[Rfam]
RNA sequence: UUUCUCAGAGUCUGUGGUUGCAAGUCCAAGCCAGAUGCGGGCAAAAGGACCCACGUAAGCUGUACAAAAAUGAUAUAGUGAGCAUGGCGCAUCUUAGAGGUAAGUCCUGCCGAGAAAAUCGAGAGGGUCAGUAGUGAGGCGAUCCCGAGCAAAAUCCCCAGCAGGCGAGUGUGGGGGCAAAGACCAGGUCAGUCUGAGAAA
Number, nucleotide and partner (000 for none) at each position: 001u201002u200003u199004c198005u197006c196007a195008g194009a193010g000011u000012c192013u191014g190015u186016g185017g184018u183019u182020g000021c000022a000023a000024g000025u000026c000027c000028a172029a000030g170031c041032c000033a094034g093035a092036u091037g090038c089039g088040g000041g031042c000043a000044a000045a000046a000047g000048g000049a000050c087051c086052c000053a000054c000055g000056u000057a000058a079059g000060c000061u000062g000063u000064a000065c000066a000067a000068a000069a000070a000071u000072g000073a000074u000075a000076u000077a000078g000079u058080g000081a000082g000083c000084a000085u179086g051087g050088c039089g038090c037091a036092u035093c034094u033095u000096a000097g000098a000099g000100g000101u000102a000103a000104g000105u000106c165107c164108u163109g162110c161111c121112g120113a119114g000115a000116a000117a000118a000119u113120c112121g111122a000123g000124a000125g158126g157127g156128u000129c000130a000131g000132u000133a000134g150135u149136g000137a000138g146139g145140c000141g000142a000143u000144c000145c139146c138147g000148a000149g135150c134151a000152a000153a000154a000155u000156c127157c126158c125159c000160a000161g110162c109163a108164g107165g106166c000167g000168a000169g000170u030171g000172u028173g000174g000175g000176g000177g000178c000179a085180a000181a000182g019183a018184c017185c016186a015187g000188g000189u000190c014191a013192g012193u009194c008195u007196g006197a005198g004199a003200a002201a001